A member of the RNA family "U5 spliceosomal RNA" from Carlito syrichta, 116 nucleotides long. The match comes from Rfam's covariance-model search (81 bits).
[Rfam]
RNA sequence: AUACUCUGGUUUCUCUUCAGAUCAUAGAAAUCUUUCGCCUUUUUCUAAAUAUUUCUGUGGAGAGAAACAAAUCUGAAUCUUGACCUAAAUUUUUGAGGCCUUUCAUCUGUAGGGCU
Dot-bracket structure: ..(.((..(((((((((((........((((.(((...........))).))))...)))))))))))......)).).................(.(((((........))))))
The family's RNA type in Rfam is spliceosomal small nuclear RNA.